[Rfam]
RNA sequence: CGCCCGAUAAAAGCGCCUGAACUAGGGAGACCUAGUUGACGAGGACGGAGGUUAUCGAUCUAUCGGCGGAUGCCUCCGGGGGGGCGGGAAAACUCCCUGAAUCGGGAACACAAAACCGCUGGGCGACCGGUGGGACAAAAGCUCCCGUUUUUCCCGA
Numbered sequence: 001c002g003c004c005c006g007a008u009a010a011a012a013g014c015g016c017c018u019g020a021a022c023u024a025g026g027g028a029g030a031c032c033u034a035g036u037u038g039a040c041g042a043g044g045a046c047g048g049a050g051g052u053u054a055u056c057g058a059u060c061u062a063u064c065g066g067c068g069g070a071u072g073c074c075u076c077c078g079g080g081g082g083g084g085c086g087g088g089a090a091a092a093c094u095c096c097c098u099g100a101a102u103c104g105g106g107a108a109c110a111c112a113a114a115a116c117c118g119c120u121g122g123g124c125g126a127c128c129g130g131u132g133g134g135a136c137a138a139a140a141g142c143u144c145c146c147g148u149u150u151u152u153c154c155c156g157a
Stems, first nucleotide, its partner, number of pairs: 020037007047077005055066004078098006103147005109141001116133007